[Rfam]
RNA sequence: CAAGUCCCCAUUCUGGAAGCUCUGGCAAAGCACCAGGUACUGAGUGUUGCGUCGGUCUCGGCAACGAGGACGGCGAAGCGUACACAAGGAGGUGAUGGGCCACAAUGCGAAAGCGUGAAGGGAUUCAGCCCCGAUAUGAACGUGAAACUGUGGAUGCCGACGCCUUGUGCAGCGCGGAAGGCAAUAUCAAGGCAGUCAAUCGCCACGACUGCCGAGAAUCCACCGGGGUUGUAGACCG
Numbered sequence: 001c002a003a004g005u006c007c008c009c010a011u012u013c014u015g016g017a018a019g020c021u022c023u024g025g026c027a028a029a030g031c032a033c034c035a036g037g038u039a040c041u042g043a044g045u046g047u048u049g050c051g052u053c054g055g056u057c058u059c060g061g062c063a064a065c066g067a068g069g070a071c072g073g074c075g076a077a078g079c080g081u082a083c084a085c086a087a088g089g090a091g092g093u094g095a096u097g098g099g100c101c102a103c104a105a106u107g108c109g110a111a112a113g114c115g116u117g118a119a120g121g122g123a124u125u126c127a128g129c130c131c132c133g134a135u136a137u138g139a140a141c142g143u144g145a146a147a148c149u150g151u152g153g154a155u156g157c158c159g160a161c162g163c164c165u166u167g168u169g170c171a172g173c174g175c176g177g178a179a180g181g182c183a184a185u186a187u188c189a190a191g192g193c194a195g196u197c198a199a200u201c202g203c204c205a206c207g208a209c210u211g212c213c214g215a216g217a218a219u220c221c222a223c224c225g226g227g228g229u230u231g232u233a234g235a236c237c238g
Stems, first nucleotide, its partner, number of pairs: 012037005019031003023205004040088002044085004048080002050075005056069005128229006150223006156182003161176003187217002191213007
Notes:
This 238-nucleotide sequence from Stenomitos frigidus belongs to the Rfam family "Group II catalytic intron D1-D4-6". For this family Rfam cites "The ins and outs of group II introns" (Bonen and Vogel, Trends Genet, 2001). NCBI's taxonomy places the organism under Bacteria, Bacillati, Cyanophyceae, Leptolyngbyaceae, Stenomitos frigidus. Gene Ontology term of the family: Group II intron splicing. It scores 141 bits against the family's covariance model. The base pairs follow the family's consensus structure.